Shown here is a 59-nucleotide RNA from Catellatospora sp. TT07R-123, a member of the family "Actino-pnp RNA". The organism belongs to Catellatospora, within Bacteria. By type it is a cis-regulatory element. Pairs were carried over by alignment from the consensus structure, which is taken from published work.
RNA sequence: GUCGGUCCUCGGUAGUGGUGUCCGGAGUCACACUCCGGGCGCUUCGAUCGAAGACCGAC
Numbered sequence: 001g002u003c004g005g006u007c008c009u010c011g012g013u014a015g016u017g018g019u020g021u022c023c024g025g026a027g028u029c030a031c032a033c034u035c036c037g038g039g040c041g042c043u044u045c046g047a048u049c050g051a052a053g054a055c056c057g058a059c
Stems, first nucleotide, its partner, number of pairs: 001059007009051005017043012